Source information:
S15-Halobacteria ribosomal protein leader: a 66-nucleotide RNA. A reference for the family is Eckert and Weinberg (2020), "Discovery of 20 novel ribosomal leader candidates in bacteria and archaea", BMC Microbiol. The family's consensus secondary structure is taken from published work.
RNA sequence: CUGGGAACCGCACGAUCGCAAAUCCGACUCGCCGGUCGAUUGGCCGGCUAGGGAUUGCGGUAGUGC
Numbered sequence: 001c002u003g004g005g006a007a008c009c010g011c012a013c014g015a016u017c018g019c020a021a022a023u024c025c026g027a028c029u030c031g032c033c034g035g036u037c038g039a040u041u042g043g044c045c046g047g048c049u050a051g052g053g054a055u056u057g058c059g060g061u062a063g064u065g066c
Stems, first nucleotide, its partner, number of pairs: 010066004015061007024053002031048007